Description:
This 89-nucleotide RNA from Paracoccus alkenifer belongs to the Rfam family "Glycine riboswitch aptamer". About the family: This family represents the bacterial glycine riboswitch.
[Rfam]
RNA sequence: UCGUGGAAAUCGGGAGACGCUGGCGCAGGCCAGGGCCGAAGGAGCAACCGCCCCGGUAAACUCUCAGGCAAAAAGACCGUUUCCGCAUA
Numbered sequence: 001u002c003g004u005g006g007a008a009a010u011c012g013g014g015a016g017a018c019g020c021u022g023g024c025g026c027a028g029g030c031c032a033g034g035g036c037c038g039a040a041g042g043a044g045c046a047a048c049c050g051c052c053c054c055g056g057u058a059a060a061c062u063c064u065c066a067g068g069c070a071a072a073a074a075g076a077c078c079g080u081u082u083c084c085g086c087a088u089a
Stems, first nucleotide, its partner, number of pairs: 006084001008082002011079003020033004035069003038065002042063003048056002